[Rfam]
The record is a 76-nucleotide sequence from Erwinia mallotivora, which matches "Enterobacterial sRNA STnc240" in Rfam. Pairs were carried over by alignment from the consensus structure, which was predicted with WAR.
RNA sequence: UGUCGGUGGGGCAGAAUGUGCCCCCUGCAAAAUAUCCGUAACCGACGCUUAUUGAUUGCGUCGGUUAUUUUUUUGU
Numbered sequence: 001u002g003u004c005g006g007u008g009g010g011g012c013a014g015a016a017u018g019u020g021c022c023c024c025c026u027g028c029a030a031a032a033u034a035u036c037c038g039u040a041a042c043c044g045a046c047g048c049u050u051a052u053u054g055a056u057u058g059c060g061u062c063g064g065u066u067a068u069u070u071u072u073u074u075g076u
Base pairs, nucleotide, nucleotide: 011021012020039067040066041065042064043063044062045061046060047059